Shown here is a 103-nucleotide RNA sequence from Rhododendron williamsianum, a member of the family "Small nucleolar RNA Z107/R87". Its family is annotated with RNA processing and nucleolus in the Gene Ontology. The match comes from Rfam's covariance-model search (84 bits).

RNA sequence: GAUCGCGAUGAUGACUCCAUAAAAUUCAAGCUCAACAGACCGUAUUGCAGGUUUCUCUGUUAGGGAAAUUUGCGUGUCGACAACCCCGCUGAACUGAGCGACU
Number, nucleotide and partner (000 for none) at each position: 001g103002a000003u101004c100005g099006c098007g000008a000009u000010g000011a000012u000013g000014a000015c000016u000017c000018c000019a000020u000021a000022a000023a000024a000025u000026u000027c000028a000029a000030g000031c000032u000033c000034a000035a000036c000037a000038g000039a000040c000041c000042g000043u000044a000045u000046u000047g000048c000049a000050g000051g000052u000053u000054u000055c000056u000057c000058u000059g000060u000061u000062a000063g000064g000065g000066a000067a000068a000069u000070u000071u000072g000073c000074g000075u000076g000077u000078c000079g000080a000081c000082a000083a000084c000085c000086c000087c000088g000089c000090u000091g000092a000093a000094c000095u000096g000097a000098g006099c005100g004101a003102c000103u001